RNA sequence: UGAUAGCUAUGAAGCGUGAGGUUGCUGCAUUCGGGAAUACAUAACCGCUUGCAGGUUUUCCGCGGAGCGAAAGUCAUGUAAACUGACGACAA
Numbered sequence: 001u002g003a004u005a006g007c008u009a010u011g012a013a014g015c016g017u018g019a020g021g022u023u024g025c026u027g028c029a030u031u032c033g034g035g036a037a038u039a040c041a042u043a044a045c046c047g048c049u050u051g052c053a054g055g056u057u058u059u060c061c062g063c064g065g066a067g068c069g070a071a072a073g074u075c076a077u078g079u080a081a082a083c084u085g086a087c088g089a090c091a092a
Stems, first nucleotide, its partner, number of pairs: 014063003018060004025054005073090003078087002
The record is a 92-nucleotide RNA from Lachnospiraceae bacterium YSD2013, which matches "S10-Clostridia ribosomal protein leader" in Rfam. The match comes from Rfam's covariance-model search (72 bits). Pairs were carried over by alignment from the consensus structure, which is taken from published work. For this family Rfam cites "Discovery of 20 novel ribosomal leader candidates in bacteria and archaea" (Eckert and Weinberg, BMC Microbiol, 2020).